[Rfam]
RNA sequence: AUUGGGUGAAGAGCUUAGUUGACUGCUGAACAGGGAGUCUUGAAUAUUUGUUCACAGUGGCUAAGUUCGUCACUCAUA
Numbered sequence: 001a002u003u004g005g006g007u008g009a010a011g012a013g014c015u016u017a018g019u020u021g022a023c024u025g026c027u028g029a030a031c032a033g034g035g036a037g038u039c040u041u042g043a044a045u046a047u048u049u050g051u052u053c054a055c056a057g058u059g060g061c062u063a064a065g066u067u068c069g070u071c072a073c074u075c076a077u078a
Stems, first nucleotide, its partner, number of pairs: 011068010027054006
The family of this 78-nucleotide sequence from Neolamprologus brichardi is "mir-27 microRNA precursor family". Gene Ontology terms of the family: miRNA-mediated post-transcriptional gene silencing and RISC complex. The family's consensus secondary structure was predicted with RNAalifold.